[Rfam]
Shown here is a 105-nucleotide RNA from Bacillus sp. FJAT-18017, a member of the family "SAM riboswitch aptamer (S box leader)".
From the family's description: The SAM riboswitch is found upstream of a number of genes which code for proteins involved in methionine or cysteine biosynthesis in Gram-positive bacteria.

RNA sequence: UACUUAUCAAGAGUGACCGAGGGAAAGGCCCUAUGACGUCCGGCAACCUCCUUAAAGGGAAGGUGCUAAUUCCUUCAGAAUGAUUUUCAUUCUGGAAGAUAAGUC
Numbered sequence: 001u002a003c004u005u006a007u008c009a010a011g012a013g014u015g016a017c018c019g020a021g022g023g024a025a026a027g028g029c030c031c032u033a034u035g036a037c038g039u040c041c042g043g044c045a046a047c048c049u050c051c052u053u054a055a056a057g058g059g060a061a062g063g064u065g066c067u068a069a070u071u072c073c074u075u076c077a078g079a080a081u082g083a084u085u086u087u088c089a090u091u092c093u094g095g096a097a098g099a100u101a102a103g104u105c
Stems, first nucleotide, its partner, number of pairs: 002104007013041001015040003021031003025075004042067004047063002049059004071097001076094006